The family of this 49-nucleotide sequence from Neorhizobium galegae is "Guanidine-II riboswitch aptamer (mini-ykkC)". Its family is annotated with regulation of gene expression in the Gene Ontology. Lineage of the source: Bacteria > Alphaproteobacteria > Rhizobiaceae > Neorhizobium > Neorhizobium galegae bv. orientalis.
RNA sequence: CAGCGAGGACGACCUCCCCCAUUCGGGCAGAAACUCCGGGACGGCCCGG
Numbered sequence: 001c002a003g004c005g006a007g008g009a010c011g012a013c014c015u016c017c018c019c020c021a022u023u024c025g026g027g028c029a030g031a032a033a034c035u036c037c038g039g040g041a042c043g044g045c046c047c048g049g
Stems, first nucleotide, its partner, number of pairs: 003018001005016004036049005